[Rfam]
RNA sequence: GCGGGCCUUUUCGCCGCCCUAAGCAAGCGGGCACCGGAUUUCAGAAAAGGAUGUCCAAUGGCCGUCAAUGCAGGCACAACCCAGUGCUUGUAUUCACGGUAAUAUCUCCGGUGGUCGUGCCGUGAAGCGGUUUUGUGCAAGGACCGCACAAUGAAACGGUACUUCUGUAUUGUUCUCGUUGUAUCUGGAGCGCUGCUGUCAUCCGGAAAUGGGGGUUGGAAUAUUUCUAACAACUCACUUUCGGUGAUUAUCAACACUUCAGGCAAGUAAGCCCGGUAGCCGCUCCCAGUGGGGCGGCUUCCUUA
Numbered sequence: 001g002c003g004g005g006c007c008u009u010u011u012c013g014c015c016g017c018c019c020u021a022a023g024c025a026a027g028c029g030g031g032c033a034c035c036g037g038a039u040u041u042c043a044g045a046a047a048a049g050g051a052u053g054u055c056c057a058a059u060g061g062c063c064g065u066c067a068a069u070g071c072a073g074g075c076a077c078a079a080c081c082c083a084g085u086g087c088u089u090g091u092a093u094u095c096a097c098g099g100u101a102a103u104a105u106c107u108c109c110g111g112u113g114g115u116c117g118u119g120c121c122g123u124g125a126a127g128c129g130g131u132u133u134u135g136u137g138c139a140a141g142g143a144c145c146g147c148a149c150a151a152u153g154a155a156a157c158g159g160u161a162c163u164u165c166u167g168u169a170u171u172g173u174u175c176u177c178g179u180u181g182u183a184u185c186u187g188g189a190g191c192g193c194u195g196c197u198g199u200c201a202u203c204c205g206g207a208a209a210u211g212g213g214g215g216u217u218g219g220a221a222u223a224u225u226u227c228u229a230a231c232a233a234c235u236c237a238c239u240u241u242c243g244g245u246g247a248u249u250a251u252c253a254a255c256a257c258u259u260c261a262g263g264c265a266a267g268u269a270a271g272c273c274c275g276g277u278a279g280c281c282g283c284u285c286c287c288a289g290u291g292g293g294g295c296g297g298c299u300u301c302c303u304u305a
Base pairs, nucleotide, nucleotide: 007049008048009047010046011045012044014030015029016028017027031039032037062188063187071090072089073088074087075086076085077084093126094125095124096123097122098121099120100119101118104115105114106113127147128146129145130144131143132142133141148182149181150180151179152178153177154176156173157172158171159170160169161168162167190268191267194265195264196263197262218228219227220226221225244255245254275303276302278299279298280297281296282295283294286293287292